Shown here is a 170-nucleotide RNA from Prodigiosinella confusarubida, a member of the family "Group II catalytic intron D1-D4-3".
RNA sequence: CUCAUCGUGAGGUGGGAUCUGAAGGAAGCUGAAGGCAAAAUGCUGGUCUGACGAACAGGAAGCAGAUUAGGCGGCACAGCGGGGUAAGGCGGCCAAUAUCGUCAAAGCCCAAUACUUGCACGGAACGCUGUGACGUAAAUCUGACAGGCAUAAGCAGGAAGGUCGCGCGA
Numbered sequence: 001c002u003c004a005u006c007g008u009g010a011g012g013u014g015g016g017a018u019c020u021g022a023a024g025g026a027a028g029c030u031g032a033a034g035g036c037a038a039a040a041u042g043c044u045g046g047u048c049u050g051a052c053g054a055a056c057a058g059g060a061a062g063c064a065g066a067u068u069a070g071g072c073g074g075c076a077c078a079g080c081g082g083g084g085u086a087a088g089g090c091g092g093c094c095a096a097u098a099u100c101g102u103c104a105a106a107g108c109c110c111a112a113u114a115c116u117u118g119c120a121c122g123g124a125a126c127g128c129u130g131u132g133a134c135g136u137a138a139a140u141c142u143g144a145c146a147g148g149c150a151u152a153a154g155c156a157g158g159a160a161g162g163u164c165g166c167g168c169g170a
Stems, first nucleotide, its partner, number of pairs: 001016006029169001035163002041156004046149005063143004071136003075132007082110004088103004

Taxonomically the source falls in Prodigiosinella (Bacteria, Pseudomonadati, Pseudomonadota, Enterobacterales). The pairing is the family consensus, mapped onto this sequence.